Rfam assigns this 205-nucleotide sequence from Paraburkholderia sp. DHOC27 to the family "Burkholderia sRNA 11". Its family is annotated with bacterial biofilm matrix in the Gene Ontology. From the family's description: Identified by RNA-seq, RACE and Northern blot. Strongly expressed in biofilm. Identified in as ncRNA13. It is complimentary by 40 nucleotides with a gene encoding a regulatory protein (BCAL1948). ncS11 is strongly up-regulated in the stationary phase and biofilms, while BCAL1948 is down-regulated under these conditions. It scores 135 bits against the family's covariance model. On this family, see Sass et al., Sci Rep 2017: "Identification of small RNAs abundant in Burkholderia cenocepacia biofilms reveal putative regulators with a potential role in carbon and iron metabolism". Pairs were carried over by alignment from the consensus structure, which was predicted with RNAfold.
RNA sequence: AUCCCUUCGCUAAGGAGUCUCUUAAGCGGAAACUCAUGGCCGCUAUCAUAGCGAGCCUGAUAGGGCUGAUCGCGCUGUCCGUGUCGACCACGGCUGUCGCAUGUGGAGUCGCUCGCUACUCAUCCGAUGGCAGGCGAUCUCGCCGCCCGAAGGCGCCGAGUGCGCACAAAAAAAGGCCUUCAUCCGACGAUGAAGGCCUUUUACU
Dot-bracket structure: .(...(((((..(((....)))...))))).....).(((((((.....)))).))).....((((.....((((...(((((.....)))))..).))).....(.(..(.((..(.((........)).)...)).).).).))))....((((.....)))).....((((((((((((((....))))))))))))))...